[Rfam]
RNA sequence: ACUAUCCUUGUCAUGGGGUGAGCGAGCUGUUCAGUGAACGUCUAGUGAGGACAGCCCUGCUAACAACCACAACGACACUAUUCGCAUCACCUGGGAGUCAUCCCAGUGUCUGGUGCAAUUUUUGGAAAC
Numbered sequence: 001a002c003u004a005u006c007c008u009u010g011u012c013a014u015g016g017g018g019u020g021a022g023c024g025a026g027c028u029g030u031u032c033a034g035u036g037a038a039c040g041u042c043u044a045g046u047g048a049g050g051a052c053a054g055c056c057c058u059g060c061u062a063a064c065a066a067c068c069a070c071a072a073c074g075a076c077a078c079u080a081u082u083c084g085c086a087u088c089a090c091c092u093g094g095g096a097g098u099c100a101u102c103c104c105a106g107u108g109u110c111u112g113g114u115g116c117a118a119u120u121u122u123u124g125g126a127a128a129c
Stems, first nucleotide, its partner, number of pairs: 006018004021061004026055007038046002084116006091106006
U4atac minor spliceosomal RNA: a 129-nucleotide RNA from Muraenolepis orangiensis. U4atac is an essential component of the minor U12-type spliceosome complex which is required for removal of the rarer class of eukaryotic introns (AT-AC, U12-type). For this family Rfam cites "Evolutionary conservation of minor U12-type spliceosome between plants and humans" (Lorkovic et al., RNA, 2005). It is annotated as a spliceosomal small nuclear RNA. The match comes from Rfam's covariance-model search (94 bits). Its Rfam clan is "U4 clan". The family's consensus secondary structure is taken from published work. The organism belongs to Muraenolepis, within Eukaryota.